[Rfam]
The record is a 121-nucleotide RNA from Ornithorhynchus anatinus, which matches "mir-130 microRNA precursor family" in Rfam.
RNA sequence: UCCAAGCCCGGGCUCUUUCCACUAAGUCACACUGCUUCUAUCUAGAAAUCUAUAUAUCUAUUCAUAGAUAUAUGAGUCAUAAGAAGCAGUGUGGCUAAGUGGAAAGAGCACGGGUUUGGGA
Dot-bracket structure: (((.((((((.((((((((..((.(((((((((((((((..........................................))))))))))))))).))..)))))))).))))))..)))

The literature on the family includes a 2002 paper in Curr Biol by Lagos-Quintana et al., "Identification of tissue-specific microRNAs from mouse". A search with the family's covariance model found it, with a score of 44 bits. Rfam links the family to the GO terms RISC complex and miRNA-mediated post-transcriptional gene silencing.